A member of the RNA family "mir-393 microRNA precursor family" from Glycine max, 148 nucleotides long. The sequence is in the family's curated seed alignment. Taxonomically the source falls in Glycine subgen. Soja (Eukaryota, Spermatophyta, Gunneridae, Fabaceae). A reference for the family is Kruszka et al. (2012), "Role of microRNAs and other sRNAs of plants in their changing environments", J Plant Physiol.
[Rfam]
RNA sequence: GGUGGAGAGUUCCAAAGGGAUCGCAUUGAUCUAAUUCUUGUAGAUGCCUGAACUUGCAAUCUUGAAUCUUGCAUGCAAUUCCUGGAUUUAGGUUUGCUUUAAGGGGUUCAGUUAUUGGAUCAUGCGAUCCCUUAGGAACUUUCCAUCA
Numbered sequence: 001g002g003u004g005g006a007g008a009g010u011u012c013c014a015a016a017g018g019g020a021u022c023g024c025a026u027u028g029a030u031c032u033a034a035u036u037c038u039u040g041u042a043g044a045u046g047c048c049u050g051a052a053c054u055u056g057c058a059a060u061c062u063u064g065a066a067u068c069u070u071g072c073a074u075g076c077a078a079u080u081c082c083u084g085g086a087u088u089u090a091g092g093u094u095u096g097c098u099u100u101a102a103g104g105g106g107u108u109c110a111g112u113u114a115u116u117g118g119a120u121c122a123u124g125c126g127a128u129c130c131c132u133u134a135g136g137a138a139c140u141u142u143c144c145a146u147c148a
Stems, first nucleotide, its partner, number of pairs: 002146005008140006015133007023125004028121008